[Rfam]
A member of the RNA family "algC RNA" from Kosakonia radicincitans, 53 nucleotides long. The sequence is in the family's curated seed alignment.
RNA sequence: UAACAAAUGGCCAUUUUACGGUCAAGGCUGACUGUUGCCUUAAGAAGAGGUAA
Numbered sequence: 001u002a003a004c005a006a007a008u009g010g011c012c013a014u015u016u017u018a019c020g021g022u023c024a025a026g027g028c029u030g031a032c033u034g035u036u037g038c039c040u041u042a043a044g045a046a047g048a049g050g051u052a053a
Stems, first nucleotide, its partner, number of pairs: 009023004